[Rfam]
RNA sequence: AACAGCAAUGACCACUAGCGAGGUAUAGAGUUCCUACGUUCUUGAAUUUAUUACUCGUAGGAACUUCAUACCGUGCUCUUGGGCUUGUGACA
Numbered sequence: 001a002a003c004a005g006c007a008a009u010g011a012c013c014a015c016u017a018g019c020g021a022g023g024u025a026u027a028g029a030g031u032u033c034c035u036a037c038g039u040u041c042u043u044g045a046a047u048u049u050a051u052u053a054c055u056c057g058u059a060g061g062a063a064c065u066u067c068a069u070a071c072c073g074u075g076c077u078c079u080u081g082g083g084c085u086u087g088u089g090a091c092a
Base pairs, nucleotide, nucleotide: 012082013081014080017077018076019075020074022072023071024070025069026068028066029065030064031063032062033061034060035059036058037057
The family of this 92-nucleotide RNA from Cinara cedri is "mir-276 microRNA precursor family". NCBI's taxonomy places the organism under Eukaryota, Protostomia, Panarthropoda, Cinara, Cinara. A search with the family's covariance model found it, with a score of 81 bits. A reference for the family is Skalsky et al. (2010), "Identification of microRNAs expressed in two mosquito vectors, Aedes albopictus and Culex quinquefasciatus", BMC Genomics. Gene Ontology terms of the family: miRNA-mediated post-transcriptional gene silencing and RISC complex.